[Rfam]
RNA sequence: UAUCUUUGCACGCUGGUACGAAAAACGUAUCAAUACAUAAUAAUCAUUUACAUAAAUAUUAGCAUG
Numbered sequence: 001u002a003u004c005u006u007u008g009c010a011c012g013c014u015g016g017u018a019c020g021a022a023a024a025a026c027g028u029a030u031c032a033a034u035a036c037a038u039a040a041u042a043a044u045c046a047u048u049u050a051c052a053u054a055a056a057u058a059u060u061a062g063c064a065u066g
Stems, first nucleotide, its partner, number of pairs: 014032006
The family of this 66-nucleotide sequence from Spongiivirga citrea is "S15-Flavobacteria ribosomal protein leader". The match comes from Rfam's covariance-model search (71 bits). The source organism's lineage runs through Bacteria, Flavobacteriia, Flavobacteriales, Flavobacteriaceae and Spongiivirga. The family's consensus secondary structure is taken from published work. Rfam classes the family as a cis-regulatory leader.